Shown here is a 151-nucleotide RNA sequence from Polymorphospora rubra, a member of the family "SAM (S-adenosyl methionine) riboswitch aptamer". Pairs were carried over by alignment from the consensus structure, which is taken from published work. Lineage of the source: Bacteria > Actinomycetes > Micromonosporales > Micromonosporaceae > Polymorphospora. Rfam describes the family as follows. SAM-IV is a mRNA element that regulates gene expression via direct sensing of S-adenosylmethionine (SAM or AdoMet).
[Rfam]
RNA sequence: GGUCACGAGUGCCAGCGACCAACGGCCCGCCGCUCCUCGGUGCGGGUCGAAGCCCCAGCUAGCUGGCCGGCAACCCUCGUCGAGGUUCGCGGUGGGGUGCCCUGGGUGAAGACCGGGCCCGACCCCAUCAGGUGCCGGGCAAGCGCGGGCC
Number, nucleotide and partner (000 for none) at each position: 001g114002g113003u112004c111005a000006c000007g000008a000009g068010u000011g067012c066013c065014a064015g063016c062017g000018a000019c000020c000021a060022a000023c000024g000025g000026c000027c000028c000029g000030c000031c000032g000033c000034u000035c000036c000037u000038c000039g000040g000041u000042g000043c000044g000045g000046g000047u000048c000049g000050a000051a000052g000053c000054c000055c000056c000057a000058g000059c000060u021061a000062g016063c015064u014065g013066g012067c011068c009069g101070g100071c099072a000073a000074c097075c096076c095077u000078c092079g000080u000081c000082g000083a000084g000085g000086u000087u000088c000089g000090c000091g000092g078093u000094g000095g076096g075097g074098u000099g071100c070101c069102c000103u000104g000105g000106g000107u000108g000109a000110a000111g004112a003113c002114c001115g000116g000117g140118c139119c138120c137121g136122a000123c134124c000125c132126c131127a000128u000129c000130a000131g126132g125133u000134g123135c000136c121137g120138g119139g118140c117141a000142a000143g000144c000145g000146c000147g000148g000149g000150c000151c000